[Rfam]
RNA sequence: GCCGAGCUAAGUAACGCUAGCUUGUAACUCGAGUGGGGGCAUCAGGGUGAUGGGACAUGGCUCGGGUAUGCUCGGUUGGGCUUGGUUGUGGCUCAGUGCUGGCUUGCCCGCUCCAAGUUAAGAGUUGAGUUACGGAACUUGGACGAAGGCGCAGGUUUCGUUGCUCCUAAACCGGAGGGCAUAGCGUGAGGCUGGCUUAACAGAGCAGCGAACACUUCCGGCUCCUGACAGUGGAGGGAUUACAAGCCGCUGCCCUUCUAGUCCAUUAUGCCGGGUUUGCCAAGCUCCUUGAACCAUCAUCUUU
Numbered sequence: 001g002c003c004g005a006g007c008u009a010a011g012u013a014a015c016g017c018u019a020g021c022u023u024g025u026a027a028c029u030c031g032a033g034u035g036g037g038g039g040c041a042u043c044a045g046g047g048u049g050a051u052g053g054g055a056c057a058u059g060g061c062u063c064g065g066g067u068a069u070g071c072u073c074g075g076u077u078g079g080g081c082u083u084g085g086u087u088g089u090g091g092c093u094c095a096g097u098g099c100u101g102g103c104u105u106g107c108c109c110g111c112u113c114c115a116a117g118u119u120a121a122g123a124g125u126u127g128a129g130u131u132a133c134g135g136a137a138c139u140u141g142g143a144c145g146a147a148g149g150c151g152c153a154g155g156u157u158u159c160g161u162u163g164c165u166c167c168u169a170a171a172c173c174g175g176a177g178g179g180c181a182u183a184g185c186g187u188g189a190g191g192c193u194g195g196c197u198u199a200a201c202a203g204a205g206c207a208g209c210g211a212a213c214a215c216u217u218c219c220g221g222c223u224c225c226u227g228a229c230a231g232u233g234g235a236g237g238g239a240u241u242a243c244a245a246g247c248c249g250c251u252g253c254c255c256u257u258c259u260a261g262u263c264c265a266u267u268a269u270g271c272c273g274g275g276u277u278u279g280c281c282a283a284g285c286u287c288c289u290u291g292a293a294c295c296a297u298c299a300u301c302u303u304u
Stems, first nucleotide, its partner, number of pairs: 001040003004023006028037003044303010056291002059287002061284002064281002068278001070276007078264005084258002090254002093252001100249007108238002111236005117229004122224004127166004132161010144149001173220006185210003192203003
About this RNA
Shown here is a 304-nucleotide sequence from Cajanus cajan, a member of the family "Plant signal recognition particle RNA". The family is grouped with related families in Rfam's "SRP clan". Rfam 15.1 lists 4,988 matches to the family in 266 species. NCBI's taxonomy places the organism under Eukaryota, Streptophyta, Tracheophyta, Mesangiospermae, Cajanus. It scores 243 bits against the family's covariance model.